The family of this 69-nucleotide RNA from Edaphobacter aggregans is "Fluoride riboswitch aptamer (crcB RNA motif)".
The family's consensus secondary structure is taken from published work.
Lineage of the source: Bacteria > Pseudomonadati > Terriglobia > Terriglobales > Edaphobacter.
RNA sequence: CAUCUUCAAGGUGAUGGAGUUCGCCUGAACCGCCCGGCCAAACCCGGUGCUGAUGACUCCUACGACUCU
Numbered sequence: 001c002a003u004c005u006u007c008a009a010g011g012u013g014a015u016g017g018a019g020u021u022c023g024c025c026u027g028a029a030c031c032g033c034c035c036g037g038c039c040a041a042a043c044c045c046g047g048u049g050c051u052g053a054u055g056a057c058u059c060c061u062a063c064g065a066c067u068c069u
Stems, first nucleotide, its partner, number of pairs: 010025004016060006032050002035047001